[Rfam]
RNA: TPP riboswitch aptamer (THI element)
RNA sequence: AGUUACUUGUCGGAGUGCUUCACUGGAUAUCCAGUAAGCUGAGACCGCGAAAGCGGGAUCCGUUGAACCUGAUCAGGCUAAUACCUGCGAAGGGAACAAGAAAAUAUAACGU
Numbered sequence: 001a002g003u004u005a006c007u008u009g010u011c012g013g014a015g016u017g018c019u020u021c022a023c024u025g026g027a028u029a030u031c032c033a034g035u036a037a038g039c040u041g042a043g044a045c046c047g048c049g050a051a052a053g054c055g056g057g058a059u060c061c062g063u064u065g066a067a068c069c070u071g072a073u074c075a076g077g078c079u080a081a082u083a084c085c086u087g088c089g090a091a092g093g094g095a096a097c098a099a100g101a102a103a104a105u106a107u108a109a110c111g112u
Base pairs, nucleotide, nucleotide: 006100007099008098009097010096011062012061013060014059016056017039018038019037020036046055047054048053068093069092070091074087075086076085077084
Dot-bracket structure: .....(((((((((.(((((...............))))......(((....))))..)))).....(((...((((......))))...)))..)))))............